[Rfam]
Nucleotides: 275
Base pairs, nucleotide, nucleotide: 018132019131020130021129022128023127024073025072026071028069029068031066032065033064034063035060036059037058039055040053041052042051043050044049081126083124085122088114089113090112092110094108145199149198150197151196157190158189159188160187162186163185164184165183166182167181168178169177204268207265208264209263210262211261220254221253222252223251225248226247230240231239232238233237
Number, partner (000 for none) and nucleotide at each position: 001000c002000u003000c004000u005000u006000c007000u008000c009000u010000c011000c012000u013000c014000a015000a016000c017000c018132a019131c020130c021129u022128g023127u024073g025072u026071c027000c028069g029068a030000c031066u032065g033064u034063c035060c036059c037058g038000u039055c040053c041052g042051c043050c044049c045000u046000c047000a048000c049044g050043g051042g052041c053040g054000u055039g056000u057000u058037c059036g060035g061000u062000c063034g064033a065032c066031g067000g068029u069028c070000u071026g072025g073024c074000a075000g076000u077000u078000c079000g080000a081126c082000c083124g084000a085122c086000u087000a088114u089113g090112g091000a092110g093000c094108c095000a096000u097000c098000a099000a100000a101000u102000c103000c104000c105000c106000a107000u108094g109000a110092u111000g112090u113089c114088a115000a116000u117000c118000u119000u120000c121000c122085g123000g124083u125000c126081g127023a128022c129021a130020g131019g132018u133000u134000g135000g136000a137000g138000a139000g140000c141000a142000a143000g144000u145199c146000g147000g148000c149198g150197c151196g152000g153000c154000u155000g156000c157190u158189g159188c160187c161000u162186g163185a164184g165183u166182u167181c168178g169177c170000c171000u172000u173000c174000a175000c176000g177169g178168u179000u180000u181167g182166a183165g184164c185163u186162c187160g188159g189158c190157g191000g192000u193000g194000g195000g196151c197150g198149u199145g200000u201000c202000a203000g204268g205000a206000a207265g208264a209263c210262u211261g212000a213000u214000u215000c216000c217000u218000g219000u220254u221253c222252c223251c224000u225248g226247c227000g228000g229000a230240u231239g232238c233237c234000g235000u236000u237233g238232g239231c240230a241000c242000c243000u244000g245000a246000a247226g248225c249000u250000u251223g252222g253221g254220a255000c256000u257000a258000a259000c260000c261211c262210a263209g264208u265207c266000a267000a268204c269000u270000a271000c272000a273000u274000a275000c

Notes:
A. fumigatus sRNA Afu_309: a 275-nucleotide sequence from Melanomma pulvis-pyrius. For this family Rfam cites "Small ncRNA transcriptome analysis from Aspergillus fumigatus suggests a novel mechanism for regulation of protein synthesis" (Jochl et al., Nucleic Acids Res, 2008). The family's consensus secondary structure was predicted with WAR. The match comes from Rfam's covariance-model search (105 bits).